Record summary
Shown here is an 85-nucleotide sequence from Caenorhabditis briggsae, a member of the family "mir-61 microRNA precursor family". Pairs were carried over by alignment from the consensus structure, which was predicted with RNAalifold.

[Rfam]
RNA sequence: AUCGGUGUCUCGAGCCGAGUUAAGGCUAAUAGUCCUUCCGGUGUAUGGUAAUGACUAGAACCUUGACUCUGCUCGAGUUACUGAG
Numbered sequence: 001a002u003c004g005g006u007g008u009c010u011c012g013a014g015c016c017g018a019g020u021u022a023a024g025g026c027u028a029a030u031a032g033u034c035c036u037u038c039c040g041g042u043g044u045a046u047g048g049u050a051a052u053g054a055c056u057a058g059a060a061c062c063u064u065g066a067c068u069c070u071g072c073u074c075g076a077g078u079u080a081c082u083g084a085g
Stems, first nucleotide, its partner, number of pairs: 003083005009077007017069009030057005036051002038048002

Gene Ontology terms of the family: miRNA-mediated post-transcriptional gene silencing and RISC complex. Rfam's curators put it in the seed alignment.